[Rfam]
RNA sequence: UCAUUUCUUCGGGGCAGGGUGUAAUUCCCGACCGACGGUGACAGCUUCCUUUUGGUAGCUGAAGUCCGUGACCCGCAUUAAUUUGCGGUUGAUCUAGUGAAAAUCUGGAACCGACAGUGAAAGUCUGGAUGGGAGAAGAAGUAC
Numbered sequence: 001u002c003a004u005u006u007c008u009u010c011g012g013g014g015c016a017g018g019g020u021g022u023a024a025u026u027c028c029c030g031a032c033c034g035a036c037g038g039u040g041a042c043a044g045c046u047u048c049c050u051u052u053u054g055g056u057a058g059c060u061g062a063a064g065u066c067c068g069u070g071a072c073c074c075g076c077a078u079u080a081a082u083u084u085g086c087g088g089u090u091g092a093u094c095u096a097g098u099g100a101a102a103a104u105c106u107g108g109a110a111c112c113g114a115c116a117g118u119g120a121a122a123g124u125c126u127g128g129a130u131g132g133g134a135g136a137a138g139a140a141g142u143a144c
Stems, first nucleotide, its partner, number of pairs: 003142008017029003031124002033113002035069004064111002073088002093109005115127003

About this RNA
A member of the RNA family "FMN riboswitch aptamer (RFN element)" from Listeria grayi, 144 nucleotides long. A reference for the family is Vitreschak et al. (2002), "Regulation of riboflavin biosynthesis and transport genes in bacteria by transcriptional and translational attenuation", Nucleic Acids Res. The RFN element is a highly conserved domain that is found frequently in the 5'-untranslated regions of prokaryotic mRNAs that encode for flavin mononucleotide (FMN) biosynthesis and transport proteins. Its family is annotated with FMN binding in the Gene Ontology.